This 109-nucleotide RNA from Clostridium tetani belongs to the Rfam family "TPP riboswitch aptamer (THI element)".
RNA sequence: AAAUAAAUUUAGGGGAGCUUAUAAAAAUAGGCUGAGAAAGAGAUGUUAUCUCUGACCCUCAUAACCUGAUUUGGCUAAUACCAACGUAGGGAACAUUGUGUAUUGUAGU
Numbered sequence: 001a002a003a004u005a006a007a008u009u010u011a012g013g014g015g016a017g018c019u020u021a022u023a024a025a026a027a028u029a030g031g032c033u034g035a036g037a038a039a040g041a042g043a044u045g046u047u048a049u050c051u052c053u054g055a056c057c058c059u060c061a062u063a064a065c066c067u068g069a070u071u072u073g074g075c076u077a078a079u080a081c082c083a084a085c086g087u088a089g090g091g092a093a094c095a096u097u098g099u100g101u102a103u104u105g106u107a108g109u
Stems, first nucleotide, its partner, number of pairs: 006097003010093001011059004017032005039053005065090004071084004